[Rfam]
RNA sequence: GAAAUAGAUGACUAGGGUUCCGGCUUACGAAAGUAAGUGACUGGUCCGAGAGUCAUCGACCUCCGACGAGGUUACACGGCGGGACAAAAGCCCGGGAGAA
Number, nucleotide and partner (000 for none) at each position: 001g000002a000003a000004a000005u000006a000007g057008a056009u055010g054011a053012c052013u000014a000015g047016g046017g000018u000019u000020c044021c043022g041023g038024c037025u036026u035027a034028c033029g000030a000031a000032a000033g028034u027035a026036a025037g024038u023039g000040a000041c022042u000043g021044g020045u000046c016047c015048g000049a000050g000051a000052g012053u011054c010055a009056u008057c007058g073059a072060c071061c070062u069063c068064c000065g000066a000067c000068g063069a062070g061071g060072u059073u058074a000075c095076a000077c098078g000079g000080c000081g093082g092083g091084a000085c000086a000087a000088a000089a000090g000091c083092c082093c081094g000095g075096g000097a000098g077099a000100a000
The family of this 100-nucleotide sequence from Pseudomonas sp. HPB0071 is "Guanidine-I riboswitch aptamer". The base pairs follow the family's consensus structure. From the family's description: This family represents a conserved RNA structure found upstream of the ykkC and yxkD genes in Bacillus subtilis and related genes in other bacteria. The function of this family is unclear although it has been suggested that it may function to switch on efflux pumps and detoxification systems in response to harmful environmental molecules. NCBI's taxonomy places the organism under Bacteria, Pseudomonadati, Gammaproteobacteria, Pseudomonadales, Pseudomonas.